[Rfam]
RNA sequence: CCUGUUCCGCGGUAGCAGAUGUGCGACGGAGUCCGCCGCGGAAUCAGUUGUCUUUCAAGACGUCCAUCGCACCGCAUUCUUCCUGGAUGCGGCCCGAGAACGGGAGAGAACGCUGAGCGUUACAAC
Numbered sequence: 001c002c003u004g005u006u007c008c009g010c011g012g013u014a015g016c017a018g019a020u021g022u023g024c025g026a027c028g029g030a031g032u033c034c035g036c037c038g039c040g041g042a043a044u045c046a047g048u049u050g051u052c053u054u055u056c057a058a059g060a061c062g063u064c065c066a067u068c069g070c071a072c073c074g075c076a077u078u079c080u081u082c083c084u085g086g087a088u089g090c091g092g093c094c095c096g097a098g099a100a101c102g103g104g105a106g107a108g109a110a111c112g113c114u115g116a117g118c119g120u121u122a123c124a125a126c
Stems, first nucleotide, its partner, number of pairs: 002047002004044009072092008